[Rfam]
RNA sequence: GACGUGUGUGCUUCAUGGACGUUUCCUCCCUAAACUCUGGCGGCGUCUCGCGACGCCGCCUCUUUUUGGUCCGCU
Numbered sequence: 001g002a003c004g005u006g007u008g009u010g011c012u013u014c015a016u017g018g019a020c021g022u023u024u025c026c027u028c029c030c031u032a033a034a035c036u037c038u039g040g041c042g043g044c045g046u047c048u049c050g051c052g053a054c055g056c057c058g059c060c061u062c063u064u065u066u067u068g069g070u071c072c073g074c075u
Stems, first nucleotide, its partner, number of pairs: 008020002011017001039060009